[Rfam]
Rfam assigns this 74-nucleotide RNA from Drosophila mojavensis to the family "mir-12 microRNA precursor family". The organism belongs to mojavensis species complex, within Eukaryota. It is one of the family's seed sequences.
RNA sequence: UACGGUUGAGUAUUACAUCAGGUACUGGUGUGCCAAUUAACUAACAACCAGUACUUAUGUCAUACUACGCCGUG
Numbered sequence: 001u002a003c004g005g006u007u008g009a010g011u012a013u014u015a016c017a018u019c020a021g022g023u024a025c026u027g028g029u030g031u032g033c034c035a036a037u038u039a040a041c042u043a044a045c046a047a048c049c050a051g052u053a054c055u056u057a058u059g060u061c062a063u064a065c066u067a068c069g070c071c072g073u074g
Stems, first nucleotide, its partner, number of pairs: 001074006009066004015060004021055009